RNA sequence: GCUUUCAACAUCCCCGUUCCAGUUCGAGCGAAUGCGCACAGGCGUGUUGUCUCGUAUUUGGAGCUGAAGGC
Numbered sequence: 001g002c003u004u005u006c007a008a009c010a011u012c013c014c015c016g017u018u019c020c021a022g023u024u025c026g027a028g029c030g031a032a033u034g035c036g037c038a039c040a041g042g043c044g045u046g047u048u049g050u051c052u053c054g055u056a057u058u059u060g061g062a063g064c065u066g067a068a069g070g071c
Base pairs, nucleotide, nucleotide: 001071002070003069004068005067006066007065016064017063018062019061020060021059022058024056026053027052028051031048032047033046034045035044036043037042

Shown here is a 71-nucleotide RNA, a member of the family "nadA riboswitch". It is annotated as a small RNA. For this family Rfam cites "Structure and ligand binding of the ADP-binding domain of the NAD(+) riboswitch" (Huang et al., RNA, 2020). Rfam's curators put it in the seed alignment.